[Rfam]
RNA sequence: UCCUUGUCACCGGGGUCCAGUUUUCCCAGGAAUCCCUUGGCCUAUCAAAAGGGGGAUUCCUGGAAAUACUGUUCUUGGAGUCAAGGC
Numbered sequence: 001u002c003c004u005u006g007u008c009a010c011c012g013g014g015g016u017c018c019a020g021u022u023u024u025c026c027c028a029g030g031a032a033u034c035c036c037u038u039g040g041c042c043u044a045u046c047a048a049a050a051g052g053g054g055g056a057u058u059c060c061u062g063g064a065a066a067u068a069c070u071g072u073u074c075u076u077g078g079a080g081u082c083a084a085g086g087c
Base pairs, nucleotide, nucleotide: 018071019070020069021068023066024065026063027062028061029060030059031058032057033056034055035054036053037052